[Rfam]
RNA sequence: UGUGGCGGCCUCCUCAUUGUGCAUGCUGUGUGUGUUUCCUGUGUACCACACAGCGCCUGCAAUGUGGAGGCUGGGACA
Numbered sequence: 001u002g003u004g005g006c007g008g009c010c011u012c013c014u015c016a017u018u019g020u021g022c023a024u025g026c027u028g029u030g031u032g033u034g035u036u037u038c039c040u041g042u043g044u045a046c047c048a049c050a051c052a053g054c055g056c057c058u059g060c061a062a063u064g065u066g067g068a069g070g071c072u073g074g075g076a077c078a
Stems, first nucleotide, its partner, number of pairs: 012067002015064007024055001026053006
About this RNA: This 78-nucleotide RNA sequence from Pleuronectes platessa belongs to the Rfam family "mir-460 microRNA precursor family". The source organism's lineage runs through Eukaryota, Chordata, Clupeocephala, Euacanthomorphacea and Pleuronectes. For this family Rfam cites "Identification of microRNAs from different tissues of chicken embryo and adult chicken" (Xu et al., FEBS Lett, 2006).